Rfam assigns this 491-nucleotide part of an RNA from Araneus ventricosus to the family "Eukaryotic large subunit ribosomal RNA". It scores 3018 bits against the family's covariance model. Its family is annotated with structural constituent of ribosome and ribosome in the Gene Ontology. On this family, see Cannone et al., BMC Bioinformatics 2002: "The comparative RNA web (CRW) site: an online database of comparative sequence and structure information for ribosomal, intron, and other RNAs".
[Rfam]
RNA sequence: GGUAGUAGCAAAUACUCAAGUGAGAACCUUGAGGACUGAAGUUGGAGAAGGGUUCCAUGUGAACAGCAGUUGAACAUGGGUCAGUCGGUCCUAAGGGAUCGGAGAAAUCCGUUCCGAAGCGAGACAUUGACUAAUAUUGCAUUCCAAUUGAAUAAAUGCACGUCUCGCUGCAGACCGAAAGGGAAUGGGGUCAAUAUUCCCCAACCCGGACACGGAGAUAGUCCCCUCGGGGACAAGUGCGGUAACGCAACCGAACUCGGAGACGUCGACGGAGGACCCGGGGAAGAGUUGUCUUUUCUUUGUAAGGAUUCGUGUCCCUGGAAUCGGCUCGUCCGGAGAUAGGGACGCUGUCUCCGUAAAAGCACCGCGGCUCUUGCGGUGUCCGGUGCGCCUCUGUCGGCCCUUGCAAAUCCGAGGGAGAGAGUGUGAUUUUCGUGCCGGUCCGUACCCAUAUCCGCAGCAGGUCUCCAAGGUGAACAGCCUCUAGUCGA
Dot-bracket structure: ..............((((((.......)))))).(((......((((..((...((((((...((.....)).))))))......(((.((...(((((.(((....))))))......((((((....................................)))))).......))....))...(((((........)))))..((((..................(((((.(...((((....))))......((((((...((((.((((((..(((..(((((.........)))))....(((......((((((...((((.....))))...)))))).......))).......(((((((.....)))))))..)))....)))))).)))).........))))))...........)..)))))..)))).)))..)).....((......)).)))).((((.....))))..)))...
Numbered sequence: 001g002g003u004a005g006u007a008g009c010a011a012a013u014a015c016u017c018a019a020g021u022g023a024g025a026a027c028c029u030u031g032a033g034g035a036c037u038g039a040a041g042u043u044g045g046a047g048a049a050g051g052g053u054u055c056c057a058u059g060u061g062a063a064c065a066g067c068a069g070u071u072g073a074a075c076a077u078g079g080g081u082c083a084g085u086c087g088g089u090c091c092u093a094a095g096g097g098a099u100c101g102g103a104g105a106a107a108u109c110c111g112u113u114c115c116g117a118a119g120c121g122a123g124a125c126a127u128u129g130a131c132u133a134a135u136a137u138u139g140c141a142u143u144c145c146a147a148u149u150g151a152a153u154a155a156a157u158g159c160a161c162g163u164c165u166c167g168c169u170g171c172a173g174a175c176c177g178a179a180a181g182g183g184a185a186u187g188g189g190g191u192c193a194a195u196a197u198u199c200c201c202c203a204a205c206c207c208g209g210a211c212a213c214g215g216a217g218a219u220a221g222u223c224c225c226c227u228c229g230g231g232g233a234c235a236a237g238u239g240c241g242g243u244a245a246c247g248c249a250a251c252c253g254a255a256c257u258c259g260g261a262g263a264c265g266u267c268g269a270c271g272g273a274g275g276a277c278c279c280g281g282g283g284a285a286g287a288g289u290u291g292u293c294u295u296u297u298c299u300u301u302g303u304a305a306g307g308a309u310u311c312g313u314g315u316c317c318c319u320g321g322a323a324u325c326g327g328c329u330c331g332u333c334c335g336g337a338g339a340u341a342g343g344g345a346c347g348c349u350g351u352c353u354c355c356g357u358a359a360a361a362g363c364a365c366c367g368c369g370g371c372u373c374u375u376g377c378g379g380u381g382u383c384c385g386g387u388g389c390g391c392c393u394c395u396g397u398c399g400g401c402c403c404u405u406g407c408a409a410a411u412c413c414g415a416g417g418g419a420g421a422g423a424g425u426g427u428g429a430u431u432u433u434c435g436u437g438c439c440g441g442u443c444c445g446u447a448c449c450c451a452u453a454u455c456c457g458c459a460g461c462a463g464g465u466c467u468c469c470a471a472g473g474u475g476a477a478c479a480g481c482c483u484c485u486a487g488u489c490g491a
Stems, first nucleotide, its partner, number of pairs: 015033006035488003044469004050449002055079006064072002086445003090182002095176002097113003101110003120167006186203005206441004228435005234428001238249004256416006265401004270396006278386003283301005306355003315345006324336004363381007455464002471483004